[Rfam]
RNA sequence: GAAGCUGGUCAGACAGUCGCCGCCUGCGUGCAGGGGGAGGAAAGUCCGGGCUCCAUAGGGUGGAACGCCAGGUAACGCCUGGGGGGCGCAAGCCUACGGAAAGUGCAGCAGAGAGCAGACCGCCGAUGGCCUCCUUGAGGCACAGGUAAGGGUGAAAGGGUGGGGUAAGAGCCCACCGCGCGACUGGUAACAGUUCGUGGCACGGUAAACCCCGUUCGGAGCAAGACCAAAUAGGCCCUCGAUGGUGUGACCCGCACUGAGGGCGGGUAGGUUGCUUGAGCCCUGUGGUGACGCAGGGCCUAGAUGAAUGACUGUCCAUGACAGAACCCGGCUUAUCGACCGGCUUCAAUU
Numbered sequence: 001g002a003a004g005c006u007g008g009u010c011a012g013a014c015a016g017u018c019g020c021c022g023c024c025u026g027c028g029u030g031c032a033g034g035g036g037g038a039g040g041a042a043a044g045u046c047c048g049g050g051c052u053c054c055a056u057a058g059g060g061u062g063g064a065a066c067g068c069c070a071g072g073u074a075a076c077g078c079c080u081g082g083g084g085g086g087c088g089c090a091a092g093c094c095u096a097c098g099g100a101a102a103g104u105g106c107a108g109c110a111g112a113g114a115g116c117a118g119a120c121c122g123c124c125g126a127u128g129g130c131c132u133c134c135u136u137g138a139g140g141c142a143c144a145g146g147u148a149a150g151g152g153u154g155a156a157a158g159g160g161u162g163g164g165g166u167a168a169g170a171g172c173c174c175a176c177c178g179c180g181c182g183a184c185u186g187g188u189a190a191c192a193g194u195u196c197g198u199g200g201c202a203c204g205g206u207a208a209a210c211c212c213c214g215u216u217c218g219g220a221g222c223a224a225g226a227c228c229a230a231a232u233a234g235g236c237c238c239u240c241g242a243u244g245g246u247g248u249g250a251c252c253c254g255c256a257c258u259g260a261g262g263g264c265g266g267g268u269a270g271g272u273u274g275c276u277u278g279a280g281c282c283c284u285g286u287g288g289u290g291a292c293g294c295a296g297g298g299c300c301u302a303g304a305u306g307a308a309u310g311a312c313u314g315u316c317c318a319u320g321a322c323a324g325a326a327c328c329c330g331g332c333u334u335a336u337c338g339a340c341c342g343g344c345u346u347c348a349a350u351u
Stems, first nucleotide, its partner, number of pairs: 001347010011336001012316007020037002023034004042334003046331005051221004058253004063217005068082005083097001084095004098212002103210002105206002120151002122147003127142002130139001159177006178201001179199005184193003225273004235264006244258005280299008